A member of the RNA family "Aggregatibacter sRNA JA04" from Pasteurella multocida, 82 nucleotides long. A reference for the family is Amarasinghe et al. (2012), "Novel iron-regulated and Fur-regulated small regulatory RNAs in Aggregatibacter actinomycetemcomitans", Mol Oral Microbiol.
RNA sequence: GCAACUUGCAGUUGUUUUUAAUAAAAUUGGUUCCUUAGGUUAUUCACCACCCAUCUUGGGUGGUGUUUUUUUUUUAGCAUGU
Dot-bracket structure: ((((((...)))))).............................((((((((.....)))))))).................
Numbered sequence: 001g002c003a004a005c006u007u008g009c010a011g012u013u014g015u016u017u018u019u020a021a022u023a024a025a026a027u028u029g030g031u032u033c034c035u036u037a038g039g040u041u042a043u044u045c046a047c048c049a050c051c052c053a054u055c056u057u058g059g060g061u062g063g064u065g066u067u068u069u070u071u072u073u074u075u076a077g078c079a080u081g082u
Stems, first nucleotide, its partner, number of pairs: 001015006045065008

The organism belongs to Pasteurella multocida subsp. multocida, within Bacteria. Rfam's curators put it in the seed alignment. Its family is annotated with response to iron ion in the Gene Ontology. By type it is a small RNA.